[Rfam]
RNA sequence: CGGGGAUGCAGGCUCCCCGUCAGACGCCCUGCGUCCAAGCCCUGC
Numbered sequence: 001c002g003g004g005g006a007u008g009c010a011g012g013c014u015c016c017c018c019g020u021c022a023g024a025c026g027c028c029c030u031g032c033g034u035c036c037a038a039g040c041c042c043u044g045c
Stems, first nucleotide, its partner, number of pairs: 001019006008045005023035005
Rfam assigns this 45-nucleotide RNA sequence to the family "chrB-b RNA". By type it is a cis-regulatory element.